[Rfam]
RNA sequence: AAGUAGAUGCACCCUGAUGAAUGCCCUUUGCCUCACGGCGAGGGUUUUUUGU
Numbered sequence: 001a002a003g004u005a006g007a008u009g010c011a012c013c014c015u016g017a018u019g020a021a022u023g024c025c026c027u028u029u030g031c032c033u034c035a036c037g038g039c040g041a042g043g044g045u046u047u048u049u050u051g052u
Base pairs, nucleotide, nucleotide: 003012004011025044026043027042028041029040030039031038032037